[Rfam]
RNA sequence: UAGCAUGCUAUCCUAAGGAUCUGAGCUCACUUGUAGCUCAUGGUUCUCCAAAUGCAUGCAAGAACAUUGGGCGGUCUUUGACUGUUGUGGCCCUUUUGCCACUAGCAGCCACUCAGCUGCCCUACAGAU
Numbered sequence: 001u002a003g004c005a006u007g008c009u010a011u012c013c014u015a016a017g018g019a020u021c022u023g024a025g026c027u028c029a030c031u032u033g034u035a036g037c038u039c040a041u042g043g044u045u046c047u048c049c050a051a052a053u054g055c056a057u058g059c060a061a062g063a064a065c066a067u068u069g070g071g072c073g074g075u076c077u078u079u080g081a082c083u084g085u086u087g088u089g090g091c092c093c094u095u096u097u098g099c100c101a102c103u104a105g106c107a108g109c110c111a112c113u114c115a116g117c118u119g120c121c122c123u124a125c126a127g128a129u
Base pairs, nucleotide, nucleotide: 014042015041019038021036022035023034025032069122070121071120072119073118074117084109085108087102088101089100090099
RNA: Small nucleolar RNA SNORA44
Organism: Nothobranchius furzeri